[Rfam]
Description
FMN riboswitch aptamer (RFN element): a 149-nucleotide RNA sequence from Pseudomonas sp. StFLB209. The base pairs follow the family's consensus structure, which is taken from published work. Rfam describes the family as follows. The RFN element is a highly conserved domain that is found frequently in the 5'-untranslated regions of prokaryotic mRNAs that encode for flavin mononucleotide (FMN) biosynthesis and transport proteins. NCBI's taxonomy places the organism under Bacteria, Pseudomonadati, Pseudomonadota, Pseudomonadaceae, Pseudomonas. It scores 111 bits against the family's covariance model.
RNA sequence: GCACGUUCUCAGGGCGGGGUGCAAGUCCCCACCGGCGGUAAUGGCGUACAACGCCUAGCCCGCGAGCGCUUCAGGCCCUUCCUGAAGGUCAGCAGACCCGGUGUGAUUCCGGGGCCGACGGUCAUAGUCCGGAUGAAGAGAGAACGGGA
Numbered sequence: 001g002c003a004c005g006u007u008c009u010c011a012g013g014g015c016g017g018g019g020u021g022c023a024a025g026u027c028c029c030c031a032c033c034g035g036c037g038g039u040a041a042u043g044g045c046g047u048a049c050a051a052c053g054c055c056u057a058g059c060c061c062g063c064g065a066g067c068g069c070u071u072c073a074g075g076c077c078c079u080u081c082c083u084g085a086a087g088g089u090c091a092g093c094a095g096a097c098c099c100g101g102u103g104u105g106a107u108u109c110c111g112g113g114g115c116c117g118a119c120g121g122u123c124a125u126a127g128u129c130c131g132g133a134u135g136a137a138g139a140g141a142g143a144a145c146g147g148g149a
Stems, first nucleotide, its partner, number of pairs: 004146007017029003031128002033117002035063004058115002066093002097113005119131003